[Rfam]
RNA sequence: GCAAUACUCAAACUGUGGGGACACUUUUUAUUCCUUGGAAGAAGUGCCGCCAAGUUUUGAGUGUUGC
Number, nucleotide and partner (000 for none) at each position: 001g000002c000003a000004a064005u063006a062007c061008u060009c059010a058011a057012a056013c000014u000015g000016u052017g051018g050019g000020g048021a000022c046023a045024c044025u043026u042027u041028u040029u000030a000031u000032u000033c000034c000035u000036u000037g000038g000039a000040a028041g027042a026043a025044g024045u023046g022047c000048c020049g000050c018051c017052a016053a000054g000055u000056u012057u011058u010059g009060a008061g007062u006063g005064u004065u000066g000067c000
RNA: mir-290 microRNA precursor family
Organism: Neotoma lepida